[Rfam]
RNA sequence: CAACGAACGAAAGGAGGUGAUCCAGUGUCUCAUUGUCAUCAGCCGCUGUCUUCGGCUUACCGGACCUGGACCGUCGCCUCCGGCGACUCCUUCUAAGGGCGCCUAGGCACUCUCGGGACAGUUUCGGCCGGACCGCGGUUCGGCAAUGGAAGGGCCGCCCUCACGGGCGGCCCU
Numbered sequence: 001c002a003a004c005g006a007a008c009g010a011a012a013g014g015a016g017g018u019g020a021u022c023c024a025g026u027g028u029c030u031c032a033u034u035g036u037c038a039u040c041a042g043c044c045g046c047u048g049u050c051u052u053c054g055g056c057u058u059a060c061c062g063g064a065c066c067u068g069g070a071c072c073g074u075c076g077c078c079u080c081c082g083g084c085g086a087c088u089c090c091u092u093c094u095a096a097g098g099g100c101g102c103c104u105a106g107g108c109a110c111u112c113u114c115g116g117g118a119c120a121g122u123u124u125c126g127g128c129c130g131g132a133c134c135g136c137g138g139u140u141c142g143g144c145a146a147u148g149g150a151a152g153g154g155c156c157g158c159c160c161u162c163a164c165g166g167g168c169g170g171c172c173c174u
Stems, first nucleotide, its partner, number of pairs: 016023002031148007044069001048065004071076001078106002081101001083100002089097001111138002114135002151174010

About this RNA: The family of this 174-nucleotide RNA sequence from Methylobacterium sp. WL8 is "caulobacter sRNA CC2171". Taxonomically the source falls in Methylobacterium (Bacteria, Pseudomonadati, Alphaproteobacteria, Hyphomicrobiales). Pairs were carried over by alignment from the consensus structure, which was predicted with RNAalifold. Rfam classes the family as a small RNA. A search with the family's covariance model found it, with a score of 91 bits.